[Rfam]
RNA: ZMP/ZTP riboswitch aptamer (pfl RNA motif)
RNA sequence: CAGCGUUCGCGCGACUGGCGAGAAGAGAUGGGGAACCAUCGGGGAACGCGAACCUUGAAGAGCCGCUCGCCUGGGCACCCAUC
Numbered sequence: 001c002a003g004c005g006u007u008c009g010c011g012c013g014a015c016u017g018g019c020g021a022g023a024a025g026a027g028a029u030g031g032g033g034a035a036c037c038a039u040c041g042g043g044g045a046a047c048g049c050g051a052a053c054c055u056u057g058a059a060g061a062g063c064c065g066c067u068c069g070c071c072u073g074g075g076c077a078c079c080c081a082u083c
Base pairs, nucleotide, nucleotide: 003055005053006052007051008050009049010048011047015043016042017071018070019069020068021067028039029038030037031036060078062076063075064074